The family of this 102-nucleotide RNA sequence from Romboutsia hominis is "Purine riboswitch aptamer". Its family is annotated with purine nucleobase biosynthetic process in the Gene Ontology. The family's consensus secondary structure is taken from published work. The source organism's lineage runs through Bacteria, Bacillota, Clostridia, Peptostreptococcaceae and Romboutsia.

RNA sequence: AAAUGAAUACAUACCAUCACUCGUAUAUACUCAGAAAUAUGGUCUGAGAGUUUCUACCGAGAUACCGUAAAUAUCUUGACUAUGAGUGAAAUUAUUAUCACA
Numbered sequence: 001a002a003a004u005g006a007a008u009a010c011a012u013a014c015c016a017u018c019a020c021u022c023g024u025a026u027a028u029a030c031u032c033a034g035a036a037a038u039a040u041g042g043u044c045u046g047a048g049a050g051u052u053u054c055u056a057c058c059g060a061g062a063u064a065c066c067g068u069a070a071a072u073a074u075c076u077u078g079a080c081u082a083u084g085a086g087u088g089a090a091a092u093u094a095u096u097a098u099c100a101c102a
Base pairs, nucleotide, nucleotide: 018088019087020086021085022084023083024082025081030048031047032046033045034044035043058078059077060076061075062074063073064072